[Rfam]
Source information:
A member of the RNA family "ATPC RNA motif", 89 nucleotides long.
RNA sequence: UUCGCCUUUUGAGGGCGAUCUGCUAAACACAUCCGCGCGCAGGUCCGGACGACAACCGGGCCCGCUCCUUCCGGGAGUGUCCCUGCGCG
Numbered sequence: 001u002u003c004g005c006c007u008u009u010u011g012a013g014g015g016c017g018a019u020c021u022g023c024u025a026a027a028c029a030c031a032u033c034c035g036c037g038c039g040c041a042g043g044u045c046c047g048g049a050c051g052a053c054a055a056c057c058g059g060g061c062c063c064g065c066u067c068c069u070u071c072c073g074g075g076a077g078u079g080u081c082c083c084u085g086c087g088c089g
Base pairs, nucleotide, nucleotide: 002018003017004016005015006014036089037088038087039086040085042062043061044060045059046058047057048056063079064078065077066076067075068074069073
Rfam's curators put it in the seed alignment.